[Rfam]
RNA sequence: CCCCCAUGAGGAAACCCCCACGUGUCUGACCCCCCCGGCGGGCCCAGGACCUGCAAAGGUGGAACCCCCUGGAGCCCUCGGGGAGACAGGGGGACACAGAGUCCCAGAGGGGACGGUCUGAGGGGG
Number, nucleotide and partner (000 for none) at each position: 001c125002c124003c123004c122005c000006a000007u000008g000009a000010g000011g000012a000013a000014a000015c000016c000017c000018c000019c000020a000021c000022g000023u000024g000025u000026c000027u000028g000029a000030c000031c000032c000033c000034c000035c000036c000037g000038g000039c000040g000041g000042g000043c000044c000045c000046a000047g000048g000049a000050c000051c000052u000053g000054c000055a000056a000057a000058g000059g000060u000061g000062g000063a000064a000065c000066c000067c000068c000069c000070u000071g000072g000073a000074g000075c000076c000077c000078u000079c000080g000081g000082g000083g000084a000085g000086a000087c000088a000089g000090g000091g000092g000093g000094a000095c000096a000097c000098a000099g000100a000101g000102u000103c000104c000105c000106a000107g000108a000109g000110g000111g000112g000113a000114c000115g000116g000117u000118c000119u000120g000121a000122g004123g003124g002125g001126g000